[Rfam]
RNA sequence: CAUCGCGGGUGUGACGCGGCCUCUGCCCGAUCCACCCCUGGCGCACUUCCCCAGCGCCAGGUGUGAGCUCGGGUGGAGACCACGCCACACCCAUGCAGGGAA
Number, nucleotide and partner (000 for none) at each position: 001c000002a000003u000004c000005g000006c000007g000008g000009g000010u089011g088012u087013g086014a000015c084016g083017c000018g081019g080020c000021c078022u077023c076024u075025g074026c073027c072028c071029g070030a069031u000032c067033c065034a064035c063036c000037c061038c060039u059040g058041g057042c056043g055044c054045a000046c000047u000048u000049c000050c000051c000052c000053a000054g044055c043056g042057c041058c040059a039060g038061g037062u000063g035064u034065g033066a000067g032068c000069u030070c029071g028072g027073g026074u025075g024076g023077a022078g021079a000080c019081c018082a000083c016084g015085c000086c013087a012088c011089a010090c000091c000092c000093a000094u000095g000096c000097a000098g000099g000100g000101a000102a000
This 102-nucleotide sequence from Gordonia jinhuaensis belongs to the Rfam family "mraW RNA". It scores 68 bits against the family's covariance model. Taxonomically the source falls in Gordonia (Bacteria, Bacillati, Mycobacteriales, Gordoniaceae). Rfam classes the family as a cis-regulatory element.